[Rfam]
RNA sequence: ACUACGACCCCGUGAUGCUGGCGGACCCCCGACCUGGCAGCAUCACGGGGUUUCCA
Numbered sequence: 001a002c003u004a005c006g007a008c009c010c011c012g013u014g015a016u017g018c019u020g021g022c023g024g025a026c027c028c029c030c031g032a033c034c035u036g037g038c039a040g041c042a043u044c045a046c047g048g049g050g051u052u053u054c055c056a
Stems, first nucleotide, its partner, number of pairs: 004053001007051014022036001
Dot-bracket structure: ...(..((((((((((((((.(.............).)))))))))))))).)...